[Rfam]
RNA sequence: GCACUCAAGCAAACCCUGUACUUCGGCUUUAGUGUUGAACGUGGGUCAAACGUAGUGCUACAUCAACUCACAGUGUAUCCAGACAAGCCUCCUUCUCCAUUGGAACUUGUCCCUACAACUUUGAGACAGAC
Numbered sequence: 001g002c003a004c005u006c007a008a009g010c011a012a013a014c015c016c017u018g019u020a021c022u023u024c025g026g027c028u029u030u031a032g033u034g035u036u037g038a039a040c041g042u043g044g045g046u047c048a049a050a051c052g053u054a055g056u057g058c059u060a061c062a063u064c065a066a067c068u069c070a071c072a073g074u075g076u077a078u079c080c081a082g083a084c085a086a087g088c089c090u091c092c093u094u095c096u097c098c099a100u101u102g103g104a105a106c107u108u109g110u111c112c113c114u115a116c117a118a119c120u121u122u123g124a125g126a127c128a129g130a131c
Stems, first nucleotide, its partner, number of pairs: 001058005012046001014044002017041002021037001068124003072120002082111006091103002

Overview
A member of the RNA family "Small nucleolar RNA SNORA55" from Chanos chanos, 131 nucleotides long. It scores 46 bits against the family's covariance model. Rfam 15.1 lists 1,476 matches to the family in 616 species. By type it is an H/ACA-box small nucleolar RNA. Lineage of the source: Eukaryota > Bilateria > Gnathostomata > Actinopteri > Chanos. ACA55 is a member of the H/ACA class of snoRNA that guide the sites of modification of uridines to pseudouridines. Its family is annotated with nucleolus and RNA processing in the Gene Ontology.